[Rfam]
RNA sequence: AAACUUACCUGGCUGGGAGGAUCUCGCGAUCACCAAGGCGGGAACUCCAUGGCGAGGCCUGAUCAUUGCACUUCAGAUCGGGCUGACCUGUGUGGCAGUCUCGAGUUGAGAUUCGCCAACAGCUUAAUUUUUGCGUGAGGGGUUGCGUUCGCGCGACCCCGG
Numbered sequence: 001a002a003a004c005u006u007a008c009c010u011g012g013c014u015g016g017g018a019g020g021a022u023c024u025c026g027c028g029a030u031c032a033c034c035a036a037g038g039c040g041g042g043a044a045c046u047c048c049a050u051g052g053c054g055a056g057g058c059c060u061g062a063u064c065a066u067u068g069c070a071c072u073u074c075a076g077a078u079c080g081g082g083c084u085g086a087c088c089u090g091u092g093u094g095g096c097a098g099u100c101u102c103g104a105g106u107u108g109a110g111a112u113u114c115g116c117c118a119a120c121a122g123c124u125u126a127a128u129u130u131u132u133g134c135g136u137g138a139g140g141g142g143u144u145g146c147g148u149u150c151g152c153g154c155g156a157c158c159c160c161g162g
Base pairs, nucleotide, nucleotide: 012123013122014121015120016048017047018046019045023042024041025040026039027038049091050090051089052088054087056084057083058082060080061079062078063077064076093118094117095116096115097113098112100110101109139160140159141158142157144155145154146153147152
Shown here is a 162-nucleotide sequence from Caenorhabditis auriculariae, a member of the family "U1 spliceosomal RNA". Pairs were carried over by alignment from the consensus structure, which is taken from published work. It scores 119 bits against the family's covariance model.